[Rfam]
RNA: mir-219 microRNA precursor family
Organism: Electrophorus electricus
RNA sequence: CCAGGGGCUGAUUGUCCAAACGCAAUUCUUGCAUCCGCCUGAUCACAGAGCAGGAGUUGUGGAUGGACAUCAUACUUCUGG
Numbered sequence: 001c002c003a004g005g006g007g008c009u010g011a012u013u014g015u016c017c018a019a020a021c022g023c024a025a026u027u028c029u030u031g032c033a034u035c036c037g038c039c040u041g042a043u044c045a046c047a048g049a050g051c052a053g054g055a056g057u058u059g060u061g062g063a064u065g066g067a068c069a070u071c072a073u074a075c076u077u078c079u080g081g
Base pairs, nucleotide, nucleotide: 002080003079004078005077006076007075009072010071011070012069014068015067016066017065018064021061022060023059024058025057026056027055028054029053030052031051